[Rfam]
RNA sequence: UUGCACGCUUCCCAGCAUGCUUGGGUUUAGAGUAACUCAGUGCAUUCCUGCGGUGCUUCUAGAGUGUUCUGAGAUGGUUUGAGGCCUCGCCCUGUUGCUACCUCAGCGCAUGGUCGUAGGCACUUCAGACAGUU
Numbered sequence: 001u002u003g004c005a006c007g008c009u010u011c012c013c014a015g016c017a018u019g020c021u022u023g024g025g026u027u028u029a030g031a032g033u034a035a036c037u038c039a040g041u042g043c044a045u046u047c048c049u050g051c052g053g054u055g056c057u058u059c060u061a062g063a064g065u066g067u068u069c070u071g072a073g074a075u076g077g078u079u080u081g082a083g084g085c086c087u088c089g090c091c092c093u094g095u096u097g098c099u100a101c102c103u104c105a106g107c108g109c110a111u112g113g114u115c116g117u118a119g120g121c122a123c124u125u126c127a128g129a130c131a132g133u134u
Base pairs, nucleotide, nucleotide: 003059005058007056008055018044019043020042023038024037025036026035027034070127071126072125073124085113086112089109090108092106093105094104